The family of this 57-nucleotide sequence from Cynara cardunculus is "Plastid-psbA-3 3UTR RNA". For this family Rfam cites "Retrograde signaling in plants: A critical review focusing on the GUN pathway and beyond" (Richter et al., Plant Commun, 2023). About the family: Plastid psbA-3 is a non-coding RNA (ncRNA) present in plastids. It was identified in inverted repeat sequences in the 3 prime untranslate region (3UTR) of photosystem II quinone-binding protein (psbA). The family's RNA type in Rfam is cis-regulatory element. It scores 52 bits against the family's covariance model. The family is grouped with related families in Rfam's "Plastid-psbA 3UTR RNA clan". The family's consensus secondary structure was predicted with LocARNA.

[Rfam]
RNA sequence: AAAGGAGCAAUAGUUUCGCUCUUGUUUUAUCAAGAGGGAGUUAUUGUUCCUGUGACG
Numbered sequence: 001a002a003a004g005g006a007g008c009a010a011u012a013g014u015u016u017c018g019c020u021c022u023u024g025u026u027u028u029a030u031c032a033a034g035a036g037g038g039a040g041u042u043a044u045u046g047u048u049c050c051u052g053u054g055a056c057g
Base pairs, nucleotide, nucleotide: 001053003051004050005049006048007047008046009045010044011043012042013041014040019036020035021034022033023032024031